[Rfam]
RNA: c-di-GMP-I-GGC riboswitch aptamer
RNA sequence: UUUGAAAAAGGCAAACCUGUCGAAAGGCAGGGACGCAAAGCCACGAGUCUAAAGCAUUUUGCUAUGAUCGUCGGGUCGCCAAGA
Numbered sequence: 001u002u003u004g005a006a007a008a009a010g011g012c013a014a015a016c017c018u019g020u021c022g023a024a025a026g027g028c029a030g031g032g033a034c035g036c037a038a039a040g041c042c043a044c045g046a047g048u049c050u051a052a053a054g055c056a057u058u059u060u061g062c063u064a065u066g067a068u069c070g071u072c073g074g075g076u077c078g079c080c081a082a083g084a
Stems, first nucleotide, its partner, number of pairs: 001084001003081002011036002016031006034070001040076003044073003047068003